A member of the RNA family "Plastid-rps12 3UTR RNA", 92 nucleotides long.
[Rfam]
RNA sequence: GGUUUCUGUUGGUGCAAAUCCAAUCACCUCGAUUUGAGAUGAAAAUCAAUUCUCCAUUGGUAGCAAAAGGUUAUCCAUUAAGCGGGGAAACA
Numbered sequence: 001g002g003u004u005u006c007u008g009u010u011g012g013u014g015c016a017a018a019u020c021c022a023a024u025c026a027c028c029u030c031g032a033u034u035u036g037a038g039a040u041g042a043a044a045a046u047c048a049a050u051u052c053u054c055c056a057u058u059g060g061u062a063g064c065a066a067a068a069g070g071u072u073a074u075c076c077a078u079u080a081a082g083c084g085g086g087g088a089a090a091c092a
Stems, first nucleotide, its partner, number of pairs: 009023004052087004056078002059075006
Pairs were carried over by alignment from the consensus structure, which was predicted with LocARNA. Plastid rpl20 is a non-coding RNA (ncRNA) recognised in plastids. It was found in the three prime untranslated region (3UTR) of rps12 gene, its 3UTR location sugest a role in transcript maduration. A reference for the family is Richter et al. (2023), "Retrograde signaling in plants: A critical review focusing on the GUN pathway and beyond", Plant Commun.